[Rfam]
RNA: Group II catalytic intron D1-D4-5
Organism: Clostridium sp. chh4-2
RNA sequence: GAGAACUGAUAAUUCGAUAGGUGGAAUGAUGGGGUAACGCCCUGAAACGCCUCCCUGAGACCUGCGAGUGGCGUAGCUGCAAUUAAGUGCAAAAAUGUCAUAGAGCUCGCUGAAGUCGGCUGAGAGUACACCCUAACAGACAAUGCUGAGGAACAGUGAACCAGAGGUGGUCAAGUGUACGAUAGGUCGGGGGUCUACAAA
Numbered sequence: 001g002a003g004a005a006c007u008g009a010u011a012a013u014u015c016g017a018u019a020g021g022u023g024g025a026a027u028g029a030u031g032g033g034g035u036a037a038c039g040c041c042c043u044g045a046a047a048c049g050c051c052u053c054c055c056u057g058a059g060a061c062c063u064g065c066g067a068g069u070g071g072c073g074u075a076g077c078u079g080c081a082a083u084u085a086a087g088u089g090c091a092a093a094a095a096u097g098u099c100a101u102a103g104a105g106c107u108c109g110c111u112g113a114a115g116u117c118g119g120c121u122g123a124g125a126g127u128a129c130a131c132c133c134u135a136a137c138a139g140a141c142a143a144u145g146c147u148g149a150g151g152a153a154c155a156g157u158g159a160a161c162c163a164g165a166g167g168u169g170g171u172c173a174a175g176u177g178u179a180c181g182a183u184a185g186g187u188c189g190g191g192g193g194u195c196u197a198c199a200a201a
Stems, first nucleotide, its partner, number of pairs: 019052005031043004053193004064110004068101007078091004117189005126180006132151003138147002157173002160171004